A member of the RNA family "Vault RNA" from Trichonephila inaurata, 83 nucleotides long.
About the family: This family of RNAs are found as part of the enigmatic vault ribonucleoprotein complex.
It scores 38 bits against the family's covariance model.
By type it is a non-coding RNA gene.
The family has 73 seed sequences and 2,873 matches in Rfam 15.1.
RNA sequence: GCGUAGGCCUGGUCGUGUGGUUACUUCGUAUAUUCGACUUGAACUCGAUUGAGUAUUGACCACAGACGCCAUCCUACGUUUUG
Numbered sequence: 001g002c003g004u005a006g007g008c009c010u011g012g013u014c015g016u017g018u019g020g021u022u023a024c025u026u027c028g029u030a031u032a033u034u035c036g037a038c039u040u041g042a043a044c045u046c047g048a049u050u051g052a053g054u055a056u057u058g059a060c061c062a063c064a065g066a067c068g069c070c071a072u073c074c075u076a077c078g079u080u081u082u083g
Stems, first nucleotide, its partner, number of pairs: 002078006012067003017063004026059003